[Rfam]
RNA sequence: GAAACUGAAGGGCAAACCCGAACGAAAGACGGGGACGCAAAACCUUGGGUCUAAGGUUCUAGGAAUGAACUAUUGAUUGCCAGGCUGCAAAA
Dot-bracket structure: ...........((...((((..(....).))))...))..(.((.((((((....((((.......))))....)))..))))).)......

Overview: The record is a 92-nucleotide RNA from Desulforamulus reducens, which matches "c-di-GMP-I riboswitch aptamer" in Rfam. The family's consensus secondary structure is taken from published work. The match comes from Rfam's covariance-model search (62 bits). Rfam links the family to the GO term cyclic-di-GMP binding.